[Rfam]
RNA sequence: AUCCAUGAAAGGGAGCUCCCUUCAGUCCAAGCACAGAGAAGAGAAGGAUGUGGUUUACCUCCCGCAUCAUUCACACAUUCACAGUAGCACAAUCCCAUGAUCCUUUCUAUUGUGUUUGAAUGAAUGAGUCGGCAGCUAAUUCAAUCCCUCCGCCCACCCAUGAGUGGACUGAAGAAAGCUCCCUCGUAUAAUUUU
Numbered sequence: 001a002u003c004c005a006u007g008a009a010a011g012g013g014a015g016c017u018c019c020c021u022u023c024a025g026u027c028c029a030a031g032c033a034c035a036g037a038g039a040a041g042a043g044a045a046g047g048a049u050g051u052g053g054u055u056u057a058c059c060u061c062c063c064g065c066a067u068c069a070u071u072c073a074c075a076c077a078u079u080c081a082c083a084g085u086a087g088c089a090c091a092a093u094c095c096c097a098u099g100a101u102c103c104u105u106u107c108u109a110u111u112g113u114g115u116u117u118g119a120a121u122g123a124a125u126g127a128g129u130c131g132g133c134a135g136c137u138a139a140u141u142c143a144a145u146c147c148c149u150c151c152g153c154c155c156a157c158c159c160a161u162g163a164g165u166g167g168a169c170u171g172a173a174g175a176a177a178g179c180u181c182c183c184u185c186g187u188a189u190a191a192u193u194u195u
Base pairs, nucleotide, nucleotide: 013181014180015179016178017177020174023171024170025169026168027167028166029165036158059135060134062132063131064130068126069125070124071123076118

Annotation: A member of the RNA family "MIR159 microRNA precursor family" from Coffea arabica, 195 nucleotides long. The family's consensus secondary structure was predicted with WAR. The match comes from Rfam's covariance-model search (92 bits). Taxonomically the source falls in Coffea (Eukaryota, Viridiplantae, Streptophytina, Gentianales). The literature on the family includes a 2004 paper in Mol Cell by Jones-Rhoades and Bartel, "Computational identification of plant microRNAs and their targets, including a stress-induced miRNA".